[Rfam]
RNA sequence: GCGGAUGGCCGGAUGACCGCGGGGCCUCGGCCUCGAGGAAAGUCCGGACUCCACCAGGAACGGUGCCGGGUAACGCCCGGCGGGGGCAACCCCAGGGACAGCGCCACAGAGAACAGACCGCCCUGCUUGCAGGGUAAGGGUGAAACGGUGGGGUAAGAGCCCACCGGGGGCCGGGUAACCGGGCCCGCAUGGCAAGCCCCACCGGGAGCAAUGCCGAAUAGGGACCUCGCGCCGCUUGCGGCAGGGACACCUGGUCCCGAGAGGUCCGGGUUGGCAGCUGGAGGCGUGUCGGCAACGGCGCGUCCAGAGGAAUGGUCAUCCAGGGACUUCGGUCCCGGACAGAAUCCGGCUUACAGGCCAUCCGCGCGA
Numbered sequence: 001g002c003g004g005a006u007g008g009c010c011g012g013a014u015g016a017c018c019g020c021g022g023g024g025c026c027u028c029g030g031c032c033u034c035g036a037g038g039a040a041a042g043u044c045c046g047g048a049c050u051c052c053a054c055c056a057g058g059a060a061c062g063g064u065g066c067c068g069g070g071u072a073a074c075g076c077c078c079g080g081c082g083g084g085g086g087c088a089a090c091c092c093c094a095g096g097g098a099c100a101g102c103g104c105c106a107c108a109g110a111g112a113a114c115a116g117a118c119c120g121c122c123c124u125g126c127u128u129g130c131a132g133g134g135u136a137a138g139g140g141u142g143a144a145a146c147g148g149u150g151g152g153g154u155a156a157g158a159g160c161c162c163a164c165c166g167g168g169g170g171c172c173g174g175g176u177a178a179c180c181g182g183g184c185c186c187g188c189a190u191g192g193c194a195a196g197c198c199c200c201a202c203c204g205g206g207a208g209c210a211a212u213g214c215c216g217a218a219u220a221g222g223g224a225c226c227u228c229g230c231g232c233c234g235c236u237u238g239c240g241g242c243a244g245g246g247a248c249a250c251c252u253g254g255u256c257c258c259g260a261g262a263g264g265u266c267c268g269g270g271u272u273g274g275c276a277g278c279u280g281g282a283g284g285c286g287u288g289u290c291g292g293c294a295a296c297g298g299c300g301c302g303u304c305c306a307g308a309g310g311a312a313u314g315g316u317c318a319u320c321c322a323g324g325g326a327c328u329u330c331g332g333u334c335c336c337g338g339a340c341a342g343a344a345u346c347c348g349g350c351u352u353a354c355a356g357g358c359c360a361u362c363c364g365c366g367c368g369a
Stems, first nucleotide, its partner, number of pairs: 001365010011354001012320007020035006040352003044349005049208004057252002061204005066080005081095001082093004096199002101197002103193003118139002120135006147165006166188001167186003171182004212276004222267006244258005284303008
Background
The record is a 369-nucleotide RNA sequence from Pelagovum pacificum, which matches "Bacterial RNase P class A" in Rfam. NCBI's taxonomy places the organism under Bacteria, Pseudomonadati, Alphaproteobacteria, Rhodobacterales, Pelagovum. The family's consensus secondary structure is taken from published work. Its family is annotated with ribonuclease P activity, dimeric ribonuclease P complex and tRNA processing in the Gene Ontology.